[Rfam]
Notes:
Shown here is a 68-nucleotide sequence from Rhodococcus sp. WMMA185, a member of the family "ASdes TB sRNA".
RNA sequence: AGUUCGACGGGGUCGACGGCGCGCGUCACGACUAGGUAGUCGCGCAUCACGAUGCCGUGCCGGUUUUC
Number, nucleotide and partner (000 for none) at each position: 001a000002g000003u000004u063005c062006g061007a000008c059009g058010g000011g000012g029013u028014c000015g027016a026017c025018g024019g000020c000021g000022c000023g000024c018025g017026u016027c015028a013029c012030g000031a000032c000033u000034a000035g056036g055037u054038a053039g000040u052041c051042g050043c000044g048045c000046a000047u000048c044049a000050c042051g041052a040053u038054g037055c036056c035057g000058u009059g008060c000061c006062g005063g004064u000065u000066u000067u000068c000
Notes
It is annotated as a small RNA. On this family, see Arnvig and Young, Mol Microbiol 2009: "Identification of small RNAs in Mycobacterium tuberculosis".